[Rfam]
Nucleotides: 131
Base pairs, nucleotide, nucleotide: 028056029055030054031053032052034044035043036042089116090115091114092113093112094111095110096109097108098107099106100105
Number, partner (000 for none) and nucleotide at each position: 001000a002000a003000a004000u005000u006000a007000a008000a009000u010000a011000u012000g013000a014000u015000u016000c017000a018000a019000c020000u021000u022000a023000a024000g025000a026000c027000a028056g029055u030054a031053g032052g033000u034044g035043c036042c037000u038000u039000u040000a041000a042036g043035g044034c045000u046000u047000a048000a049000u050000a051000u052032c053031c054030u055029g056028c057000c058000g059000a060000g061000g062000u063000u064000g065000a066000a067000a068000g069000g070000u071000a072000a073000a074000c075000g076000u077000a078000u079000u080000u081000g082000a083000c084000u085000a086000u087000a088000u089116g090115u091114g092113c093112c094111c095110u096109u097108u098107c099106u100105g101000a102000c103000u104000u105100c106099g107098g108097a109096a110095a111094g112093g113092g114091c115090a116089c117000u118000u119000u120000u121000u122000g123000g124000u125000u126000g127000u128000a129000a130000u131000a

Ribosomal protein L10 leader: a 131-nucleotide RNA sequence from Alkalicella caledoniensis. A reference for the family is Yakhnin et al. (2015), "Ribosomal protein L10(L12)4 autoregulates expression of the Bacillus subtilis rplJL operon by a transcription attenuation mechanism", Nucleic Acids Res. It scores 88 bits against the family's covariance model. Taxonomically the source falls in Alkalicella (Bacteria, Bacillota, Eubacteriales, Proteinivoracaceae).